RNA sequence: GACUUGGUCUCUCGAGCAAGCUUAAGCCGUUAGGUGUAGGCGCAGCGAAAGCGAGUCUUAAUAGGGCGUCAGAGUUCGAGGGAUCAGACCCGAAACCGAGUGAUCUAGGCAUGACCAGGAUGAAGAUAAGGUAACACUUAUUGGAGGUCCGAACCCACACCUGUUGAAAAAGGUCGGGAUGAGUUGUGCCUAGGGGUGAAAGGCCAAUCAAACUCGGAGAUAGCUGGUU
Numbered sequence: 001g002a003c004u005u006g007g008u009c010u011c012u013c014g015a016g017c018a019a020g021c022u023u024a025a026g027c028c029g030u031u032a033g034g035u036g037u038a039g040g041c042g043c044a045g046c047g048a049a050a051g052c053g054a055g056u057c058u059u060a061a062u063a064g065g066g067c068g069u070c071a072g073a074g075u076u077c078g079a080g081g082g083a084u085c086a087g088a089c090c091c092g093a094a095a096c097c098g099a100g101u102g103a104u105c106u107a108g109g110c111a112u113g114a115c116c117a118g119g120a121u122g123a124a125g126a127u128a129a130g131g132u133a134a135c136a137c138u139u140a141u142u143g144g145a146g147g148u149c150c151g152a153a154c155c156c157a158c159a160c161c162u163g164u165u166g167a168a169a170a171a172g173g174u175c176g177g178g179a180u181g182a183g184u185u186g187u188g189c190c191u192a193g194g195g196g197u198g199a200a201a202g203g204c205c206a207a208u209c210a211a212a213c214u215c216g217g218a219g220a221u222a223g224c225u226g227g228u229u
Stems, first nucleotide, its partner, number of pairs: 005086013020041004026035003045052002055067004089227002092224001096217006105193011116181001118150004125142006154178003159174004195205003
This 229-nucleotide part of an RNA from Palleronia marisminoris belongs to the Rfam family "Bacterial large subunit ribosomal RNA". Pairs were carried over by alignment from the consensus structure, which is taken from published work. NCBI's taxonomy places the organism under Bacteria, Pseudomonadati, Alphaproteobacteria, Roseobacteraceae, Palleronia. It scores 2658 bits against the family's covariance model.